Record summary:
mir-36 microRNA precursor family: a 99-nucleotide sequence from Caenorhabditis remanei. It scores 76 bits against the family's covariance model. Gene Ontology terms of the family: RISC complex and miRNA-mediated post-transcriptional gene silencing. The family is grouped with related families in Rfam's "mir-36 clan". The literature on the family includes a 2004 paper in RNA by Ohler et al., "Patterns of flanking sequence conservation and a characteristic upstream motif for microRNA gene identification".
[Rfam]
RNA sequence: ACUCCUCGGUCGGAUCGGACCUCCACUGGUUUUAGCUUCGGUGAUAUUUCUAGAAUGAUUAUCACCGGGUGAAAAUCAGGGCAGGUCCGAUCCCAUCGA
Numbered sequence: 001a002c003u004c005c006u007c008g009g010u011c012g013g014a015u016c017g018g019a020c021c022u023c024c025a026c027u028g029g030u031u032u033u034a035g036c037u038u039c040g041g042u043g044a045u046a047u048u049u050c051u052a053g054a055a056u057g058a059u060u061a062u063c064a065c066c067g068g069g070u071g072a073a074a075a076u077c078a079g080g081g082c083a084g085g086u087c088c089g090a091u092c093c094c095a096u097c098g099a
Stems, first nucleotide, its partner, number of pairs: 016089007024081001026079008035070003039067001041065006
Dot-bracket structure: ...............(((((((.(.((((((((.(((.(.((((((.............)))))).)))).)))))))).).)))))))..........